[Rfam]
RNA sequence: GGUCGAGCGGAUAAAGGUGUCCGCAUUCGAGAUAAAUAAAGCUUCUGGGGCGGGAAGCU
Numbered sequence: 001g002g003u004c005g006a007g008c009g010g011a012u013a014a015a016g017g018u019g020u021c022c023g024c025a026u027u028c029g030a031g032a033u034a035a036a037u038a039a040a041g042c043u044u045c046u047g048g049g050g051c052g053g054g055a056a057g058c059u
Base pairs, nucleotide, nucleotide: 003030004029005028007024008023009022010021011020040059041058042057043056044055045054046053
Na+ riboswitch aptamer (DUF1646): a 59-nucleotide RNA sequence. On this family, see White et al., Nat Chem Biol 2022: "Na(+) riboswitches regulate genes for diverse physiological processes in bacteria". Its family is annotated with regulation of gene expression and sodium ion binding in the Gene Ontology.